[Rfam]
RNA sequence: CGGGAGCUAUCCCGUGGGAAUGUGGCCCAAAAUGGGUUGAACCGUGAA
Numbered sequence: 001c002g003g004g005a006g007c008u009a010u011c012c013c014g015u016g017g018g019a020a021u022g023u024g025g026c027c028c029a030a031a032a033u034g035g036g037u038u039g040a041a042c043c044g045u046g047a048a
Stems, first nucleotide, its partner, number of pairs: 001014005017043002025037005
RNA: eL15-Euryarchaeota ribosomal protein leader